[Rfam]
RNA sequence: AAAUGAAGAUGAAUGCUCACGCACACGCAAGCAGUGCAGCCCGGAUGGCCUCGGGCAUGACCUCGCGUGCUCGUCGACCGGAAACCUGCUUCUAGCUGGGUCACCGGACGUAUUCGCUGUUUU
Numbered sequence: 001a002a003a004u005g006a007a008g009a010u011g012a013a014u015g016c017u018c019a020c021g022c023a024c025a026c027g028c029a030a031g032c033a034g035u036g037c038a039g040c041c042c043g044g045a046u047g048g049c050c051u052c053g054g055g056c057a058u059g060a061c062c063u064c065g066c067g068u069g070c071u072c073g074u075c076g077a078c079c080g081g082a083a084a085c086c087u088g089c090u091u092c093u094a095g096c097u098g099g100g101u102c103a104c105c106g107g108a109c110g111u112a113u114u115c116g117c118u119g120u121u122u123u
Stems, first nucleotide, its partner, number of pairs: 031120006038111001041107002043079002046076004054071006080105002085100004089095001
RNA: Xanthomonadaceae sRNA Xoo5
Organism: Pseudoxanthomonas dokdonensis